[Rfam]
RNA sequence: CCGAACGACAACAGUCCGAAACAUUCCAUUUGGUUGAAACGAUAUGGAAGACCGACGCGGAAAGCUGGGGCAUUUAGCGAAUGCUCCGGGGAAACUGACAGGUAAAGAAAAGGCUGUUCGACGGUACUUUGGAAAGACCACUUUAAUGUGGAGCCAAUGAGGCUAUAACCAACUGGCAAAAAGACAGAGGA
Numbered sequence: 001c002c003g004a005a006c007g008a009c010a011a012c013a014g015u016c017c018g019a020a021a022c023a024u025u026c027c028a029u030u031u032g033g034u035u036g037a038a039a040c041g042a043u044a045u046g047g048a049a050g051a052c053c054g055a056c057g058c059g060g061a062a063a064g065c066u067g068g069g070g071c072a073u074u075u076a077g078c079g080a081a082u083g084c085u086c087c088g089g090g091g092a093a094a095c096u097g098a099c100a101g102g103u104a105a106a107g108a109a110a111a112g113g114c115u116g117u118u119c120g121a122c123g124g125u126a127c128u129u130u131g132g133a134a135a136g137a138c139c140a141c142u143u144u145a146a147u148g149u150g151g152a153g154c155c156a157a158u159g160a161g162g163c164u165a166u167a168a169c170c171a172a173c174u175g176g177c178a179a180a181a182a183g184a185c186a187g188a189g190g191a
Stems, first nucleotide, its partner, number of pairs: 001124003010118007022050001024049006051103003057099001058097003065089010127189005138151004153177003159173001161170002
Dot-bracket structure: (((......(((((((.....(.((((((..............)))))))(((...((((....((((((((((.....)))))))))).....))).).)))........)))))))...)))..(((((......((((......)))).(((...(.((......))..).))).......)))))..